Nucleotides: 086
Stems, first nucleotide, its partner, number of pairs: 012037002017032006040080004046076002048072003055066003
Number, partner (000 for none) and nucleotide at each position: 001000u002000u003000u004000a005000g006000a007000u008000a009000a010000a011000g012037g013036c014000a015000a016000a017032c018031u019030u020029g021028u022027c023000g024000a025000a026000a027022g028021a029020u030019a031018a032017g033000g034000a035000c036013g037012c038000a039000a040080a041079g042078c043077c044000a045000a046076g047075g048072g049071c050070c051000u052000a053000a054000g055066g056065c057064a058000u059000a060000a061000a062000c063000u064057u065056g066055c067000u068000a069000a070050g071049g072048u073000a074000g075047c076046c077043g078042g079041u080040u081000a082000c083000c084000u085000a086000a

Shown here is an 86-nucleotide sequence from Caldisalinibacter kiritimatiensis, a member of the family "c-di-GMP-I riboswitch aptamer". A search with the family's covariance model found it, with a score of 85 bits. From the family's description: GEMM was predicted in a large-scale screen for bacterial structured RNA regulatory elements. A reference for the family is Weinberg et al. (2007), "Identification of 22 candidate structured RNAs in bacteria using the CMfinder comparative genomics pipeline", Nucleic Acids Res. The family's consensus secondary structure is taken from published work.